The record is an 83-nucleotide RNA sequence from Lupinus albus, which matches "Small nucleolar RNA Z102/R77" in Rfam. Rfam links the family to the GO terms RNA processing and nucleolus. The family's consensus secondary structure was predicted with PFOLD. It is annotated as a C/D-box small nucleolar RNA.
[Rfam]
RNA sequence: UUAUGGAAUGAUGAUCAAUUGUAUCCUUAUUUGUUUGAUUGCUUCUAUUUUGGCAUUUAUGUAUUAGCUCUAUCUGAUCAUUC
Numbered sequence: 001u002u003a004u005g006g007a008a009u010g011a012u013g014a015u016c017a018a019u020u021g022u023a024u025c026c027u028u029a030u031u032u033g034u035u036u037g038a039u040u041g042c043u044u045c046u047a048u049u050u051u052g053g054c055a056u057u058u059a060u061g062u063a064u065u066a067g068c069u070c071u072a073u074c075u076g077a078u079c080a081u082u083c
Stems, first nucleotide, its partner, number of pairs: 003081003037057001040055004